[Rfam]
RNA sequence: CAGCAUUCUUAAACCCUCUUGGUAGCUUCCUUUGUACUUCCAAGAUAAUGAAUGAAUGCUACAGAAAUGGCAGGAGAGUCCAAAAGGCUGAGCCUCACCUGUGGCUCACUCUUAUUUCAUACCUGCGACAUUU
Numbered sequence: 001c002a003g004c005a006u007u008c009u010u011a012a013a014c015c016c017u018c019u020u021g022g023u024a025g026c027u028u029c030c031u032u033u034g035u036a037c038u039u040c041c042a043a044g045a046u047a048a049u050g051a052a053u054g055a056a057u058g059c060u061a062c063a064g065a066a067a068u069g070g071c072a073g074g075a076g077a078g079u080c081c082a083a084a085a086g087g088c089u090g091a092g093c094c095u096c097a098c099c100u101g102u103g104g105c106u107c108a109c110u111c112u113u114a115u116u117u118c119a120u121a122c123c124u125g126c127g128a129c130a131u132u133u
Stems, first nucleotide, its partner, number of pairs: 003059004009051003017045006024038002063133003068128001070126005084113004089108002092105002096101001

Small nucleolar RNA SNORA14: a 133-nucleotide RNA from Echinops telfairi. The family's consensus secondary structure was predicted with RNAfold. It is annotated as an H/ACA-box small nucleolar RNA. Rfam's curators put it in the seed alignment. About the family: ACA14 is a member of the H/ACA class of snoRNA that guide the sites of modification of uridines to pseudouridines. The source organism's lineage runs through Eukaryota, Craniata, Afrotheria, Tenrecinae and Echinops. Its family is annotated with nucleolus and RNA processing in the Gene Ontology.